Shown here is a 77-nucleotide RNA from Cytophaga sp., a member of the family "Flavo-1 RNA". The source organism's lineage runs through Bacteria, Bacteroidota, Cytophagales, Cytophagaceae and Cytophaga. The base pairs follow the family's consensus structure, which is taken from published work. By type it is a small RNA.
RNA sequence: CGGAUGCCGCGUUAGGGAUUGAAACGUAAAUCCUUUUCUUGUUUAAGAAAAGAUUGCAGUAAAAAGCCCAACCUCUU
Numbered sequence: 001c002g003g004a005u006g007c008c009g010c011g012u013u014a015g016g017g018a019u020u021g022a023a024a025c026g027u028a029a030a031u032c033c034u035u036u037u038c039u040u041g042u043u044u045a046a047g048a049a050a051a052g053a054u055u056g057c058a059g060u061a062a063a064a065a066g067c068c069c070a071a072c073c074u075c076u077u
Base pairs, nucleotide, nucleotide: 015069016068017067019065020064024060025059029055030054031053032052035050036049037048038047039046